RNA sequence: CUCGGGUUGCUUAGUGAGGAGGCCAACAGAAAAGUUUCAGAUGCAAAGUUCUUUUACAUCUGUAAGUUUAGGCCUUUUGAGUGGACUUUCGUCCUAUCCAUGAACCGUUCUCCAAGCAGCCUAAAACACUU
Numbered sequence: 001c002u003c004g005g006g007u008u009g010c011u012u013a014g015u016g017a018g019g020a021g022g023c024c025a026a027c028a029g030a031a032a033a034g035u036u037u038c039a040g041a042u043g044c045a046a047a048g049u050u051c052u053u054u055u056a057c058a059u060c061u062g063u064a065a066g067u068u069u070a071g072g073c074c075u076u077u078u079g080a081g082u083g084g085a086c087u088u089u090c091g092u093c094c095u096a097u098c099c100a101u102g103a104a105c106c107g108u109u110c111u112c113c114a115a116g117c118a119g120c121c122u123a124a125a126a127c128a129c130u131u
Stems, first nucleotide, its partner, number of pairs: 004024002010021003040060004067125007076116004081112001083110004
RNA: Small nucleolar RNA U19
Organism: Genlisea aurea